Rfam assigns this 93-nucleotide RNA sequence from Artemisia annua to the family "mir-399 microRNA precursor family". The base pairs follow the family's consensus structure, which was predicted with PFOLD. The literature on the family includes a 2004 paper in Mol Cell by Jones-Rhoades and Bartel, "Computational Identification of Plant MicroRNAs and Their Targets, Including a Stress-Induced miRNA". A search with the family's covariance model found it, with a score of 62 bits. Gene Ontology terms of the family: miRNA-mediated post-transcriptional gene silencing and RISC complex. From the family's description: mir-399 was identified in both Arabidopsis thaliana and Oryza sativa computationally and was later experimentally verified. mir-399 is thought to target mRNAs coding for a phosphatase transporter. The mature sequence is excised from the 3' arm of the hairpin.
[Rfam]
RNA sequence: GUAUAUAUUACUGGGUAACUACUCCUUUGGCAGUUACUAUAUCGCGGCUAAUUAAGACCAACUGCCAAGGGAGAUUUGCCCCGCAAUUCAUCA
Number, nucleotide and partner (000 for none) at each position: 001g000002u000003a000004u000005a000006u000007a087008u086009u085010a000011c083012u000013g081014g080015g079016u078017a077018a076019c000020u000021a000022c073023u072024c071025c070026u000027u000028u067029g066030g065031c064032a063033g062034u061035u060036a000037c000038u000039a000040u000041a000042u000043c000044g000045c000046g000047g000048c000049u000050a000051a000052u000053u000054a000055a000056g000057a000058c000059c000060a035061a034062c033063u032064g031065c030066c029067a028068a000069g000070g025071g024072a023073g022074a000075u000076u018077u017078g016079c015080c014081c013082c000083g011084c000085a009086a008087u007088u000089c000090a000091u000092c000093a000
The organism belongs to Artemisia, within Eukaryota.